This 403-nucleotide sequence from Actinacidiphila oryziradicis belongs to the Rfam family "Bacterial RNase P class A". The match comes from Rfam's covariance-model search (288 bits). It is annotated as a ribozyme.
[Rfam]
RNA sequence: CGAGCCGAGCGGACGGCCGCGUUAGGACCCCGGUCCUGCCGAGGAACGUCCGGACUCCAUAGGGCAGGGUGGUGGCUAACGGCCACCCGGGGUGACCCGCGGGACAGUGCCACAGAAAGUAAACCGCCGGGGCCGAAAGGCACCCGGUAAGGGUGAAACGGUGGUGUAAGAGACCACCAGUGCCCAGGGUGACCUGGGCAGCUAGGUAAACCCCACCCGGAGCAAGGUCAAGAAGGGGCCACCGUCAGGCGGCCCUGCGCGGACGUUCGAGGGCUGCCCGCCCGAGUCCGCGGGUAGACCGCAAGAGGCCGGCGGCAACGCCGGUCCUAGAUGGAUGGCCGUCAGCCGGCCGGCCGCGAGGCCGACCGGUCAACAAAAUCCGGCGUACAGCUUGACUCGUUCU
Numbered sequence: 001c002g003a004g005c006c007g008a009g010c011g012g013a014c015g016g017c018c019g020c021g022u023u024a025g026g027a028c029c030c031c032g033g034u035c036c037u038g039c040c041g042a043g044g045a046a047c048g049u050c051c052g053g054a055c056u057c058c059a060u061a062g063g064g065c066a067g068g069g070u071g072g073u074g075g076c077u078a079a080c081g082g083c084c085a086c087c088c089g090g091g092g093u094g095a096c097c098c099g100c101g102g103g104a105c106a107g108u109g110c111c112a113c114a115g116a117a118a119g120u121a122a123a124c125c126g127c128c129g130g131g132g133c134c135g136a137a138a139g140g141c142a143c144c145c146g147g148u149a150a151g152g153g154u155g156a157a158a159c160g161g162u163g164g165u166g167u168a169a170g171a172g173a174c175c176a177c178c179a180g181u182g183c184c185c186a187g188g189g190u191g192a193c194c195u196g197g198g199c200a201g202c203u204a205g206g207u208a209a210a211c212c213c214c215a216c217c218c219g220g221a222g223c224a225a226g227g228u229c230a231a232g233a234a235g236g237g238g239c240c241a242c243c244g245u246c247a248g249g250c251g252g253c254c255c256u257g258c259g260c261g262g263a264c265g266u267u268c269g270a271g272g273g274c275u276g277c278c279c280g281c282c283c284g285a286g287u288c289c290g291c292g293g294g295u296a297g298a299c300c301g302c303a304a305g306a307g308g309c310c311g312g313c314g315g316c317a318a319c320g321c322c323g324g325u326c327c328u329a330g331a332u333g334g335a336u337g338g339c340c341g342u343c344a345g346c347c348g349g350c351c352g353g354c355c356g357c358g359a360g361g362c363c364g365a366c367c368g369g370u371c372a373a374c375a376a377a378a379u380c381c382g383g384c385g386u387a388c389a390g391c392u393u394g395a396c397u398c399g400u401u402c403u
Stems, first nucleotide, its partner, number of pairs: 001399004006394005011388001012343007020041002023038006046386003050383005055222004062279004067218005072086005087101001088099004102213002107211002109207003124152002126148006132141003160178006180202001181200008226300004259291006271283004307326008